A member of the RNA family "Small nucleolar SNORD12/SNORD106" from Echeneis naucrates, 90 nucleotides long.
The match comes from Rfam's covariance-model search (62 bits).
A reference for the family is Vitali et al. (2003), "Identification of 13 novel human modification guide RNAs", Nucleic Acids Res.
Taxonomically the source falls in Echeneis (Eukaryota, Neopterygii, Neoteleostei, Ctenosquamata).

[Rfam]
RNA sequence: AAUGUGGUUAAUGAUGCACACUUUUUUCCCCGUCUUAUCGACUUUGCUGAGAAAACUGAAAACUAAGCCAGUUGUGUCUGAAACCACGUU
Numbered sequence: 001a002a003u004g005u006g007g008u009u010a011a012u013g014a015u016g017c018a019c020a021c022u023u024u025u026u027u028c029c030c031c032g033u034c035u036u037a038u039c040g041a042c043u044u045u046g047c048u049g050a051g052a053a054a055a056c057u058g059a060a061a062a063c064u065a066a067g068c069c070a071g072u073u074g075u076g077u078c079u080g081a082a083a084c085c086a087c088g089u090u
Stems, first nucleotide, its partner, number of pairs: 001090009